This 318-nucleotide sequence from Varanus komodoensis belongs to the Rfam family "7SK RNA". The match comes from Rfam's covariance-model search (221 bits). It is annotated as a non-coding RNA gene. The family has 45 seed sequences and 49,373 matches in Rfam 15.1. The organism belongs to Varanus, within Eukaryota.
[Rfam]
RNA sequence: GGAUGUGAGGGCAAUCUGGCUGCGGCAUUUGUCACCCCAUUGGUCGCCAGGGUUGAUUCAGCCAAUCUGGCUGGCUAGGUGGGUGUCUCCUUCCUCCCUCCCUUUUGCACGUGCGUCCCUCCUGAAGCUGCGCACUACUAUCCCAGAUAGGAGGAAUGUACCAUUCUUCGGUCCAGGUUAUACGACAGCUGUGCUCCCCUGCUAGAACCUCCAAAAAAGCUCUCAAGGCCCAUUUGUGGGAGAUGGUAGGGUAGUCAUGCUUCCAAGACUCGAGACACAUCCAAGUGAGGCGCUGCAUGUGUCGGUUUGCCAUUCUAA
Numbered sequence: 001g002g003a004u005g006u007g008a009g010g011g012c013a014a015u016c017u018g019g020c021u022g023c024g025g026c027a028u029u030u031g032u033c034a035c036c037c038c039a040u041u042g043g044u045c046g047c048c049a050g051g052g053u054u055g056a057u058u059c060a061g062c063c064a065a066u067c068u069g070g071c072u073g074g075c076u077a078g079g080u081g082g083g084u085g086u087c088u089c090c091u092u093c094c095u096c097c098c099u100c101c102c103u104u105u106u107g108c109a110c111g112u113g114c115g116u117c118c119c120u121c122c123u124g125a126a127g128c129u130g131c132g133c134a135c136u137a138c139u140a141u142c143c144c145a146g147a148u149a150g151g152a153g154g155a156a157u158g159u160a161c162c163a164u165u166c167u168u169c170g171g172u173c174c175a176g177g178u179u180a181u182a183c184g185a186c187a188g189c190u191g192u193g194c195u196c197c198c199c200u201g202c203u204a205g206a207a208c209c210u211c212c213a214a215a216a217a218a219g220c221u222c223u224c225a226a227g228g229c230c231c232a233u234u235u236g237u238g239g240g241a242g243a244u245g246g247u248a249g250g251g252u253a254g255u256c257a258u259g260c261u262u263c264c265a266a267g268a269c270u271c272g273a274g275a276c277a278c279a280u281c282c283a284a285g286u287g288a289g290g291c292g293c294u295g296c297a298u299g300u301g302u303c304g305g306u307u308u309g310c311c312a313u314u315c316u317a318a
Stems, first nucleotide, its partner, number of pairs: 001108001003106001005102001007100005014092001018090002024087010035074002037070003042067003046062002117158001118154004124135001127133002138150005188260002194254002197251006209242004215237001217235003285316001287313001289311003292306004